[Rfam]
RNA sequence: ACCAGUAACGGAGAUGACAUUCCUCCAUAACCGCCUUCCGGCUAAUGAUGUCUACGAGCUC
Dot-bracket structure: .........[[[[..((((((.]]]]......(((....)))....)))))).........